Shown here is a 106-nucleotide sequence from Solanum commersonii, a member of the family "Small nucleolar RNA Z107/R87". The family has 9 seed sequences and 783 matches in Rfam 15.1. Rfam classes the family as a C/D-box small nucleolar RNA. For this family Rfam cites "Identification of 66 box C/D snoRNAs in Arabidopsis thaliana: extensive gene duplications generated multiple isoforms predicting new ribosomal RNA 2'-O-methylation sites" (Barneche et al., J Mol Biol, 2001).
RNA sequence: GAUCACGAUGACGACUCCAUAAUAUUCAAGCUCAACAGACCGGAUUGCAGGCUUCUCUAUUUUUAGAGUUUGCUUGCGUGUCGAGUACCCGCUGAGCUGAGUGAUU
Dot-bracket structure: ((((((..............................................................................................))))))